[Rfam]
RNA sequence: AGAGGCCCUCCGCGGCCAGGGCGGGAUGCUUGCCUUGUCGCUGCAGCGACAAAGCAAGCAUUCCACCAGGCCGCUCAUGCUGCCCAC
Numbered sequence: 001a002g003a004g005g006c007c008c009u010c011c012g013c014g015g016c017c018a019g020g021g022c023g024g025g026a027u028g029c030u031u032g033c034c035u036u037g038u039c040g041c042u043g044c045a046g047c048g049a050c051a052a053a054g055c056a057a058g059c060a061u062u063c064c065a066c067c068a069g070g071c072c073g074c075u076c077a078u079g080c081u082g083c084c085c086a087c
Stems, first nucleotide, its partner, number of pairs: 004084003012074006020067002023064011037050005
A member of the RNA family "mir-9195 microRNA precursor family" from Cnephaeus nilssonii, 87 nucleotides long. Rfam links the family to the GO terms miRNA-mediated post-transcriptional gene silencing and RISC complex. Lineage of the source: Eukaryota > Teleostomi > Eutheria > Chiroptera > Cnephaeus.